[Rfam]
RNA sequence: UAAAAAAUGUUGAUAGAGAAGAGUAACUUACAAAAUCGCUAUGUAGGGAGAGAGUGCCAUAGACUGAAAGCACUCUUAUAGUAGACGUGAGUGAAUUCACCUCUGGAGUUGACGCCAGGACCAUUUAUAUGUAAAGGCGUUCCGGUUUAAAAAGCCGUUAUAAUAAUGAAGUGGGCAGACUCGUUCUGUCAAUUUAGGGUGGUACCGCGAAUUUACCUCGUCCCUUUU
Dot-bracket structure: ......((......((((.......((((((.......(((........((((((((............)))))))).))).....))))))........))))...)).((((((...................)))))).(((.........)))................((((((.....)))))).....((((.......((((.......))))))))...

The record is a 228-nucleotide sequence, which matches "T-box leader" in Rfam.
It scores 118 bits against the family's covariance model.
The family has 48 seed sequences and 19,395 matches in Rfam 15.1.
Rfam classes the family as a cis-regulatory leader.
Gene Ontology term of the family: tRNA binding.
Uncharged tRNA acts as the effector for transcription antitermination of genes in the T-box leader family. T-boxes are found upstream of many aminoacyl-tRNA synthetase genes and some amino acid biosynthetic genes usually in Gram-positive bacteria. The anticodon of a specific tRNA base pairs to a specifier sequence within the T-box motif, and the NCCA acceptor tail of the tRNA base pairs to a conserved bulge in the T-box antiterminator hairpin.